[Rfam]
RNA sequence: GCCUGCCAAGGUUGUCGCUACGGAUACGAUAAACCAAAUCAUUUUAGAAUAUAAACUAAUUAUUAGGUCGACAAGGUAUCCUGUUCUAUUGCGAGAAGAAAGACAAUUUGGUAGUAGCACUGGCGGCAACGCUGAUGCAAGGAG
Numbered sequence: 001g002c003c004u005g006c007c008a009a010g011g012u013u014g015u016c017g018c019u020a021c022g023g024a025u026a027c028g029a030u031a032a033a034c035c036a037a038a039u040c041a042u043u044u045u046a047g048a049a050u051a052u053a054a055a056c057u058a059a060u061u062a063u064u065a066g067g068u069c070g071a072c073a074a075g076g077u078a079u080c081c082u083g084u085u086c087u088a089u090u091g092c093g094a095g096a097a098g099a100a101a102g103a104c105a106a107u108u109u110g111g112u113a114g115u116a117g118c119a120c121u122g123g124c125g126g127c128a129a130c131g132c133u134g135a136u137g138c139a140a141g142g143a144g
Stems, first nucleotide, its partner, number of pairs: 003114007013105004022081006084097004117138003121134005